[Rfam]
RNA sequence: UAUUGACAAAGGCAAACCUGUUGAAAAGCAGGGACGCAAAGCUAUAGGGGCUUCAGCGCCGCCAGCGCUCAGCCAGCCAGCUACCAAU
Number, nucleotide and partner (000 for none) at each position: 001u000002a000003u000004u000005g000006a000007c000008a000009a000010a000011g000012g037013c036014a000015a000016a000017c032018c031019u030020g029021u028022u027023g000024a000025a000026a000027a022028g021029c020030a019031g018032g017033g000034a000035c000036g013037c012038a000039a000040a082041g081042c080043u079044a000045u000046a000047g078048g077049g074050g073051c072052u000053u000054c000055a000056g068057c067058g066059c065060c000061g000062c000063c000064a000065g059066c058067g057068c056069u000070c000071a000072g051073c050074c049075a000076g000077c048078c047079a043080g042081c041082u040083a000084c000085c000086a000087a000088u000

Annotation
Rfam assigns this 88-nucleotide sequence from Paenibacillus dendritiformis to the family "c-di-GMP-I riboswitch aptamer". The organism belongs to Paenibacillus dendritiformis, within Bacteria. It scores 78 bits against the family's covariance model. GEMM was predicted in a large-scale screen for bacterial structured RNA regulatory elements. Pairs were carried over by alignment from the consensus structure, which is taken from published work.